RNA sequence: GAGUCUAACAUGGGUGCGAGUGCUCGGGUGGCAAGCCCGCGCGCGCAGUGAAGGUGAUUGGUGGGAGCCCCGAGCGGGUGCACCACCGUCCGACUUUGAGAUUGUUCGAAAGGUUUGAGAGCGAGCAUCCAUGCUGGGACCCGAAAGAUGGUGAACUAUGCCUGAGCAGGGUGAAGCCAGAGGAAACUCUGGUGGAGGCUCGCAGCGGUGCUGACGUGCAAAUCGCUCGUCGGACUUGGGUAUAGGGGCGAAAGACUAAUCGAACCAUCUAGUAGCUGGUU
Numbered sequence: 001g002a003g004u005c006u007a008a009c010a011u012g013g014g015u016g017c018g019a020g021u022g023c024u025c026g027g028g029u030g031g032c033a034a035g036c037c038c039g040c041g042c043g044c045g046c047a048g049u050g051a052a053g054g055u056g057a058u059u060g061g062u063g064g065g066a067g068c069c070c071c072g073a074g075c076g077g078g079u080g081c082a083c084c085a086c087c088g089u090c091c092g093a094c095u096u097u098g099a100g101a102u103u104g105u106u107c108g109a110a111a112g113g114u115u116u117g118a119g120a121g122c123g124a125g126c127a128u129c130c131a132u133g134c135u136g137g138g139a140c141c142c143g144a145a146a147g148a149u150g151g152u153g154a155a156c157u158a159u160g161c162c163u164g165a166g167c168a169g170g171g172u173g174a175a176g177c178c179a180g181a182g183g184a185a186a187c188u189c190u191g192g193u194g195g196a197g198g199c200u201c202g203c204a205g206c207g208g209u210g211c212u213g214a215c216g217u218g219c220a221a222a223u224c225g226c227u228c229g230u231c232g233g234a235c236u237u238g239g240g241u242a243u244a245g246g247g248g249c250g251a252a253a254g255a256c257u258a259a260u261c262g263a264a265c266c267a268u269c270u271a272g273u274a275g276c277u278g279g280u281u
Base pairs, nucleotide, nucleotide: 005137006136007135009133010132011131012130013129014128015127016126017125020044021043022042025039026038027037028036029035048055049054060087061086062085063084064083067079068078069077089120090119091117092116093115094113095112096111100107101106140279141278143276147269148268149267150266151265152264156245157244158243159242160241161240162239163238164237165236166235167233169201170200171199172198176193177192178191179190180189181188182187205230206229207228208227210226211225213224214223247257248256
Dot-bracket structure: ....(((.(((((((((..(((..(((((.....)))))..)))...((....))....(((((..(((.......)))...))))).((((((((...((....))...))).))).))....))))))))).)))..((.(...((((((...((((((((((((.((((...(((((((....)))))))....))))...((((.((.((........))))))))..).))))))))))).((.......))......))))))......).))..